This 228-nucleotide RNA sequence from Staphylococcus saprophyticus belongs to the Rfam family "S. aureus tsr24 small RNA". The family's consensus secondary structure was predicted with RNAfold. A search with the family's covariance model found it, with a score of 58 bits.
[Rfam]
RNA sequence: AUAUUAUAAUCCUUGUACUUAAGGCACCUCGUUAAUUUAGUUUAGUGGUAUUUAUUAAAUGAUAAAGAAUUAGCUUAUUUUUUAAAGUAUUUCAAUAUAAAAAUACAUAUAAAUACAGAGCGUUUUGGCGAGACACUUGAAGGAACGGGAUAAGCUGAAGACUACAGGCUGAAGCCGUCCUCUAAGAAAGCGAGACAACAAUACGAAGUAUUGUAAAUAAAACAGCCA
Numbered sequence: 001a002u003a004u005u006a007u008a009a010u011c012c013u014u015g016u017a018c019u020u021a022a023g024g025c026a027c028c029u030c031g032u033u034a035a036u037u038u039a040g041u042u043u044a045g046u047g048g049u050a051u052u053u054a055u056u057a058a059a060u061g062a063u064a065a066a067g068a069a070u071u072a073g074c075u076u077a078u079u080u081u082u083u084a085a086a087g088u089a090u091u092u093c094a095a096u097a098u099a100a101a102a103a104u105a106c107a108u109a110u111a112a113a114u115a116c117a118g119a120g121c122g123u124u125u126u127g128g129c130g131a132g133a134c135a136c137u138u139g140a141a142g143g144a145a146c147g148g149g150a151u152a153a154g155c156u157g158a159a160g161a162c163u164a165c166a167g168g169c170u171g172a173a174g175c176c177g178u179c180c181u182c183u184a185a186g187a188a189a190g191c192g193a194g195a196c197a198a199c200a201a202u203a204c205g206a207a208g209u210a211u212u213g214u215a216a217a218u219a220a221a222a223c224a225g226c227c228a
Stems, first nucleotide, its partner, number of pairs: 004216006030047006049072002052069002055067002059063001088210006098105002108117001110115001120204001122202003125198003129194001136186003140183001142181002145178002148175001153170004